Shown here is a 127-nucleotide sequence from Serratia proteamaculans, a member of the family "RtT RNA".
The base pairs follow the family's consensus structure, which is taken from published work.
It is one of the family's seed sequences.

RNA sequence: UGUCACUCCCAAGCGGGAAGGAUGAGAAGCUUCGACAAGGUUCGAGUCUCACGCAGUGAGACAACGCGCUUCAGCGCGGCCCGAAGGGUGAGUCGCACAGCGACGAAUAAUCCUUCCCCCACCACCA
Numbered sequence: 001u002g003u004c005a006c007u008c009c010c011a012a013g014c015g016g017g018a019a020g021g022a023u024g025a026g027a028a029g030c031u032u033c034g035a036c037a038a039g040g041u042u043c044g045a046g047u048c049u050c051a052c053g054c055a056g057u058g059a060g061a062c063a064a065c066g067c068g069c070u071u072c073a074g075c076g077c078g079g080c081c082c083g084a085a086g087g088g089u090g091a092g093u094c095g096c097a098c099a100g101c102g103a104c105g106a107a108u109a110a111u112c113c114u115u116c117c118c119c120c121a122c123c124a125c126c127a
Stems, first nucleotide, its partner, number of pairs: 015118007023110001033090002036087001041085004048058001065078005
Dot-bracket structure: ..............(((((((.(.........((.(....((((...(.........)......(((((....)))))...)))).).))...................).))))))).........
Taxonomically the source falls in Serratia proteamaculans (Bacteria, Pseudomonadati, Pseudomonadota, Yersiniaceae). Rfam links the family to the GO term cellular response to amino acid starvation. The family's RNA type in Rfam is cis-regulatory element. Rfam describes the family as follows. This family represents a bacterial cis-regulatory element known as RtT RNA. The exact function of RtT is unknown although it is thought that it may be involved in changing the cellular response in relation to amino acid starvation.